[Rfam]
RNA sequence: UGCACCGGAAGAGGAGCGUUAGUCAGGUAGUUAAUCCGAGAAACUCAAAUUUCAACGACGAUUAAUGAUGGGAGCUAACGCCGAGGAAGGUUUAACUUUGAGAAUUAAACUUUCCGACUGUUUGGGCUGAAUCCCUACAGUUGUCACCUAAGUGUUAAUAACCCGCAUUGUUAAAAUGCAUGUUACUAAGGUGGAGAGCUUCUGGCAUG
Numbered sequence: 001u002g003c004a005c006c007g008g009a010a011g012a013g014g015a016g017c018g019u020u021a022g023u024c025a026g027g028u029a030g031u032u033a034a035u036c037c038g039a040g041a042a043a044c045u046c047a048a049a050u051u052u053c054a055a056c057g058a059c060g061a062u063u064a065a066u067g068a069u070g071g072g073a074g075c076u077a078a079c080g081c082c083g084a085g086g087a088a089g090g091u092u093u094a095a096c097u098u099u100g101a102g103a104a105u106u107a108a109a110c111u112u113u114c115c116g117a118c119u120g121u122u123u124g125g126g127c128u129g130a131a132u133c134c135c136u137a138c139a140g141u142u143g144u145c146a147c148c149u150a151a152g153u154g155u156u157a158a159u160a161a162c163c164c165g166c167a168u169u170g171u172u173a174a175a176a177u178g179c180a181u182g183u184u185a186c187u188a189a190g191g192u193g194g195a196g197a198g199c200u201u202c203u204g205g206c207a208u209g
Base pairs, nucleotide, nucleotide: 006204007203008202009201010200011199016081017080018079019078020077021076022075023074030066031065032064033063034062035061036060085115086114087113088112089111090110091109092108093107094106095105116142117141118140119139120138121137124135125134126133144194145193146192147191148190149189

A member of the RNA family "Lysine riboswitch aptamer" from Psychrosphaera saromensis, 209 nucleotides long. Rfam describes the family as follows. Riboswitches are metabolite binding domains within certain messenger RNAs that serve as precision sensors for their corresponding targets. The base pairs follow the family's consensus structure, which is taken from published work. Rfam 15.1 lists 3,224 matches to the family in 1,923 species.